[Rfam]
RNA: Actinobacteria sRNA Ms_IGR-5
RNA sequence: ACACAGGGAAGGAGGUGGUCCGAUCAAUGAUUGACGUACGGACUUGUGAGGUGGCUGCGCGCUAGCAGCUGGUGACGGGAUCACUCGCCACCGCGCAGCGAAUCCCAACGCAGUCACCCGACCCGCGGGGGCCGAGAUCUUGUCCACUCGGCAUUCAACCCCGCGGGUCGUUCCGU
Numbered sequence: 001a002c003a004c005a006g007g008g009a010a011g012g013a014g015g016u017g018g019u020c021c022g023a024u025c026a027a028u029g030a031u032u033g034a035c036g037u038a039c040g041g042a043c044u045u046g047u048g049a050g051g052u053g054g055c056u057g058c059g060c061g062c063u064a065g066c067a068g069c070u071g072g073u074g075a076c077g078g079g080a081u082c083a084c085u086c087g088c089c090a091c092c093g094c095g096c097a098g099c100g101a102a103u104c105c106c107a108a109c110g111c112a113g114u115c116a117c118c119c120g121a122c123c124c125g126c127g128g129g130g131g132c133c134g135a136g137a138u139c140u141u142g143u144c145c146a147c148u149c150g151g152c153a154u155u156c157a158a159c160c161c162c163g164c165g166g167g168u169c170g171u172u173c174c175g176u
Stems, first nucleotide, its partner, number of pairs: 015058005060100004065096002068094002071091001119170012131152006